Shown here is a 155-nucleotide RNA from Apolygus lucorum, a member of the family "U12 minor spliceosomal RNA". By type it is a spliceosomal small nuclear RNA. A search with the family's covariance model found it, with a score of 110 bits.
RNA sequence: GUGCCUUAAACUUAUGAGUAAGGAAAAUAUAGAGCCUUGGUGAUGCUUGGCUCAAGCAAACCAAUUUAUGCUAUUAUAUUUUUGAAGAGGUACAGGUCGUCCCUUCGAUCCUUCUGUCUACUUCUCAGAAGGAACGGGUGACAGCGAUCUGCCUC
Numbered sequence: 001g002u003g004c005c006u007u008a009a010a011c012u013u014a015u016g017a018g019u020a021a022g023g024a025a026a027a028u029a030u031a032g033a034g035c036c037u038u039g040g041u042g043a044u045g046c047u048u049g050g051c052u053c054a055a056g057c058a059a060a061c062c063a064a065u066u067u068a069u070g071c072u073a074u075u076a077u078a079u080u081u082u083u084g085a086a087g088a089g090g091u092a093c094a095g096g097u098c099g100u101c102c103c104u105u106c107g108a109u110c111c112u113u114c115u116g117u118c119u120a121c122u123u124c125u126c127a128g129a130a131g132g133a134a135c136g137g138g139u140g141a142c143a144g145c146g147a148u149c150u151g152c153c154u155c
Stems, first nucleotide, its partner, number of pairs: 004023005032053005039046001055072004087155005094150007103138002107135001109133003113129004
The family is grouped with related families in Rfam's "U2 clan".
Rfam links the family to the GO terms mRNA branch site recognition, U12 snRNP and pre-mRNA branch point binding.